[Rfam]
RNA sequence: AAAAAAGCAGGGAUCUGUUGCCUUUGUGAACAGGGCUCUCGUAAACUUCAGGGAAAUCAAAUGCAUUGUUCUUGGGUGAACCUCUGUUUGUUUUAUUGUGGCUGAAGGUUCAGUAAACGAUGUCACAUUU
Numbered sequence: 001a002a003a004a005a006a007g008c009a010g011g012g013a014u015c016u017g018u019u020g021c022c023u024u025u026g027u028g029a030a031c032a033g034g035g036c037u038c039u040c041g042u043a044a045a046c047u048u049c050a051g052g053g054a055a056a057u058c059a060a061a062u063g064c065a066u067u068g069u070u071c072u073u074g075g076g077u078g079a080a081c082c083u084c085u086g087u088u089u090g091u092u093u094u095a096u097u098g099u100g101g102c103u104g105a106a107g108g109u110u111c112a113g114u115a116a117a118c119g120a121u122g123u124c125a126c127a128u129u130u
Stems, first nucleotide, its partner, number of pairs: 005048003011037002014034004064122007077112007
Notes:
This 130-nucleotide RNA sequence from Acer saccharum belongs to the Rfam family "Small nucleolar RNA snoR74". The base pairs follow the family's consensus structure, which was predicted with WAR. A reference for the family is Marker et al. (2002), "Experimental RNomics: identification of 140 candidates for small non-messenger RNAs in the plant Arabidopsis thaliana", Curr Biol. It is annotated as an H/ACA-box small nucleolar RNA. The family has 9 seed sequences and 1,404 matches in Rfam 15.1. Rfam links the family to the GO terms nucleolus and RNA processing. A search with the family's covariance model found it, with a score of 119 bits.